[Rfam]
RNA sequence: GCGAUGAGCUGUUUGCGUAAGACGAAGUAUAUGAUUUAAAAAUCUAAACGACGAAUGUGGUCGUCGGUACAUUCGCGGCAAAAAUCGAAAGCCUCCCCAACUUAAUGGGGAGGC
Numbered sequence: 001g002c003g004a005u006g007a008g009c010u011g012u013u014u015g016c017g018u019a020a021g022a023c024g025a026a027g028u029a030u031a032u033g034a035u036u037u038a039a040a041a042a043u044c045u046a047a048a049c050g051a052c053g054a055a056u057g058u059g060g061u062c063g064u065c066g067g068u069a070c071a072u073u074c075g076c077g078g079c080a081a082a083a084a085u086c087g088a089a090a091g092c093c094u095c096c097c098c099a100a101c102u103u104a105a106u107g108g109g110g111a112g113g114c
Stems, first nucleotide, its partner, number of pairs: 013081004023075004027070004033044002049066005091114009
RNA: BsrF